[Rfam]
RNA: Fluoride riboswitch aptamer (crcB RNA motif)
Organism: Cupriavidus sp. USMAA2-4
RNA sequence: GUCCUCAUAGGAGAUGGCGUUCCUCCUCAUAACCGCCACGCGUUCGCGUGGCUGAUGACGCCUACAGACUU
Numbered sequence: 001g002u003c004c005u006c007a008u009a010g011g012a013g014a015u016g017g018c019g020u021u022c023c024u025c026c027u028c029a030u031a032a033c034c035g036c037c038a039c040g041c042g043u044u045c046g047c048g049u050g051g052c053u054g055a056u057g058a059c060g061c062c063u064a065c066a067g068a069c070u071u
Base pairs, nucleotide, nucleotide: 010026011025012024013023016062017061018060019059020058021057035052036051037050038049039048040047041046
Dot-bracket structure: .........[[[[..((((((.]]]]........(((((((....)))))))....)))))).........